The record is a 111-nucleotide RNA from Rhynchospora breviuscula, which matches "Small nucleolar RNA Z107/R87" in Rfam. The organism belongs to Rhynchospora, within Eukaryota. Pairs were carried over by alignment from the consensus structure, which was predicted with RNAfold. A reference for the family is Barneche et al. (2001), "Identification of 66 box C/D snoRNAs in Arabidopsis thaliana: extensive gene duplications generated multiple isoforms predicting new ribosomal RNA 2'-O-methylation sites", J Mol Biol.

[Rfam]
RNA sequence: AAUUGUGGUGACGACUCUGUAAAAUUCAAGCUCAACAGACCAGAUCGCAGGUCCCUCGAUCCAACAAUCGCAGGGAUUUGUAUGUCGAUAUUCCCGCUGAACUGAGCAUUU
Numbered sequence: 001a002a003u004u005g006u007g008g009u010g011a012c013g014a015c016u017c018u019g020u021a022a023a024a025u026u027c028a029a030g031c032u033c034a035a036c037a038g039a040c041c042a043g044a045u046c047g048c049a050g051g052u053c054c055c056u057c058g059a060u061c062c063a064a065c066a067a068u069c070g071c072a073g074g075g076a077u078u079u080g081u082a083u084g085u086c087g088a089u090a091u092u093c094c095c096g097c098u099g100a101a102c103u104g105a106g107c108a109u110u111u
Base pairs, nucleotide, nucleotide: 001111002110004108005107006106